[Rfam]
RNA sequence: GGUAAAUGAGGAGUGGAUUAAUCUCGCUACUUUAAUUCGAGAUGAGUGUCCACUCCAAAGCCUGGUUACGACAAUUGGGCACUCUCCCUUUUUCCAAUCUGAUCCC
Numbered sequence: 001g002g003u004a005a006a007u008g009a010g011g012a013g014u015g016g017a018u019u020a021a022u023c024u025c026g027c028u029a030c031u032u033u034a035a036u037u038c039g040a041g042a043u044g045a046g047u048g049u050c051c052a053c054u055c056c057a058a059a060g061c062c063u064g065g066u067u068a069c070g071a072c073a074a075u076u077g078g079g080c081a082c083u084c085u086c087c088c089u090u091u092u093u094c095c096a097a098u099c100u101g102a103u104c105c106c
Stems, first nucleotide, its partner, number of pairs: 001106002004103001014097001016095001023041004044084007063077004
The family of this 106-nucleotide sequence from Lupinus albus is "Small nucleolar RNA Z279/snoR105/snoR108". Rfam's curators write: This family includes the plant snoRNAs known as Z279, snoR105 and snoR108. The literature on the family includes a 2002 paper in Curr Biol by Marker et al., "Experimental RNomics: identification of 140 candidates for small non-messenger RNAs in the plant Arabidopsis thaliana". Its Rfam clan is "snoU13 clan". The family's RNA type in Rfam is C/D-box small nucleolar RNA. Taxonomically the source falls in Lupinus (Eukaryota, Viridiplantae, Tracheophyta, Spermatophyta).